[Rfam]
RNA: Vertebrate telomerase RNA
RNA sequence: CGAUCUCCGGCUGGGAGGCUCUCGCUAUUCUAACCCUAACUGGUCUUUCUUGACAUCUAUUACGCAUGCGCUGUUUUUCUCGUUGACUUUCAGCGAUUUGAACACUCAAAAAAGUCAACGGCGAGAGCCUCCUACCCGGGAGGCCCCGCGCCUCUUCUUCGCCUUCAUGGUUUCCCUCCAGUUGGGCCUCGCCGUCCCGUCUACGAGGCCGCGGCCAGGCUUUCCUGUCGCGAAGGGUUCGCCCCUGUCAGCCUUAGGGCGGAGGAGGCUCCGGCUGAGGAGCGAAGGCAGCUGAGGGGAACGGCAGAGAAGCGCCAGAGAAAAGCGGGCACGCCUUUCCCCCCGCAAGGGGGCGCUGCGCUCUUGAUCGGUAGGGCGUGCGGCGUAAGGCAGGUCCCGACAGGC
Numbered sequence: 001c002g003a004u005c006u007c008c009g010g011c012u013g014g015g016a017g018g019c020u021c022u023c024g025c026u027a028u029u030c031u032a033a034c035c036c037u038a039a040c041u042g043g044u045c046u047u048u049c050u051u052g053a054c055a056u057c058u059a060u061u062a063c064g065c066a067u068g069c070g071c072u073g074u075u076u077u078u079c080u081c082g083u084u085g086a087c088u089u090u091c092a093g094c095g096a097u098u099u100g101a102a103c104a105c106u107c108a109a110a111a112a113a114g115u116c117a118a119c120g121g122c123g124a125g126a127g128c129c130u131c132c133u134a135c136c137c138g139g140g141a142g143g144c145c146c147c148g149c150g151c152c153u154c155u156u157c158u159u160c161g162c163c164u165u166c167a168u169g170g171u172u173u174c175c176c177u178c179c180a181g182u183u184g185g186g187c188c189u190c191g192c193c194g195u196c197c198c199g200u201c202u203a204c205g206a207g208g209c210c211g212c213g214g215c216c217a218g219g220c221u222u223u224c225c226u227g228u229c230g231c232g233a234a235g236g237g238u239u240c241g242c243c244c245c246u247g248u249c250a251g252c253c254u255u256a257g258g259g260c261g262g263a264g265g266a267g268g269c270u271c272c273g274g275c276u277g278a279g280g281a282g283c284g285a286a287g288g289c290a291g292c293u294g295a296g297g298g299g300a301a302c303g304g305c306a307g308a309g310a311a312g313c314g315c316c317a318g319a320g321a322a323a324a325g326c327g328g329g330c331a332c333g334c335c336u337u338u339c340c341c342c343c344c345g346c347a348a349g350g351g352g353g354c355g356c357u358g359c360g361c362u363c364u365u366g367a368u369c370g371g372u373a374g375g376g377c378g379u380g381c382g383g384c385g386u387a388a389g390g391c392a393g394g395u396c397c398c399g400a401c402a403g404g405c
Stems, first nucleotide, its partner, number of pairs: 006140005012134012066098001069095005082119006088112003148315004153310002172285002176282004184271007193261005210232005216227004234246004327397004332393001333391005356383005361376004